Shown here is a 71-nucleotide RNA from Pelusios castaneus, a member of the family "mir-451 microRNA precursor family". Rfam 15.1 lists 658 matches to the family in 500 species. Lineage of the source: Eukaryota > Deuterostomia > Vertebrata > Sauria > Pelusios. A search with the family's covariance model found it, with a score of 70 bits. The literature on the family includes a 2008 paper in Biochem Pharmacol by Zhu et al., "Role of MicroRNA miR-27a and miR-451 in the regulation of MDR1/P-glycoprotein expression in human cancer cells".
RNA sequence: CAGGGAGUGUCAAUUAAACCGUUACCAUUACUGACUUUAGUAAUGGCAACGGUUCUACUGCCACUCCCCAC
Numbered sequence: 001c002a003g004g005g006a007g008u009g010u011c012a013a014u015u016a017a018a019c020c021g022u023u024a025c026c027a028u029u030a031c032u033g034a035c036u037u038u039a040g041u042a043a044u045g046g047c048a049a050c051g052g053u054u055c056u057a058c059u060g061c062c063a064c065u066c067c068c069c070a071c
Stems, first nucleotide, its partner, number of pairs: 007064003011060002017054004022049002025046009